[Rfam]
RNA sequence: CCACAAAGACGAUUCAACGAACUCUCUCUUACUGAGAUACCAGUGGAAUUAACUUUAAACUGCUGAGUGGC
Numbered sequence: 001c002c003a004c005a006a007a008g009a010c011g012a013u014u015c016a017a018c019g020a021a022c023u024c025u026c027u028c029u030u031a032c033u034g035a036g037a038u039a040c041c042a043g044u045g046g047a048a049u050u051a052a053c054u055u056u057a058a059a060c061u062g063c064u065g066a067g068u069g070g071c
Stems, first nucleotide, its partner, number of pairs: 001070004
RNA: Small nucleolar RNA SNORD26